[Rfam]
RNA: U2 spliceosomal RNA
RNA sequence: AUCGCUUCUCUGCCUUUUGCCUAAGAUCAAGUAUAGUGUCGGUUUUUAUCAGGUUAAUAACUGAUAUGUUCACUAUCUGGGGAUCAUAUGUUAAACUGAUUUUUGGAACAGGGAGACGGAAUAGGGGCUUACUCCAUCCACUUGAUGCAUUUACCUGGUAUUGCAGUACUUCCAGUAUCAGUGUACUCCCC
Numbered sequence: 001a002u003c004g005c006u007u008c009u010c011u012g013c014c015u016u017u018u019g020c021c022u023a024a025g026a027u028c029a030a031g032u033a034u035a036g037u038g039u040c041g042g043u044u045u046u047u048a049u050c051a052g053g054u055u056a057a058u059a060a061c062u063g064a065u066a067u068g069u070u071c072a073c074u075a076u077c078u079g080g081g082g083a084u085c086a087u088a089u090g091u092u093a094a095a096c097u098g099a100u101u102u103u104u105g106g107a108a109c110a111g112g113g114a115g116a117c118g119g120a121a122u123a124g125g126g127g128c129u130u131a132c133u134c135c136a137u138c139c140a141c142u143u144g145a146u147g148c149a150u151u152u153a154c155c156u157g158g159u160a161u162u163g164c165a166g167u168a169c170u171u172c173c174a175g176u177a178u179c180a181g182u183g184u185a186c187u188c189c190c191c
Stems, first nucleotide, its partner, number of pairs: 007026003012021001014019001047066006068084004073079001113143003118138002124135004147184005155175004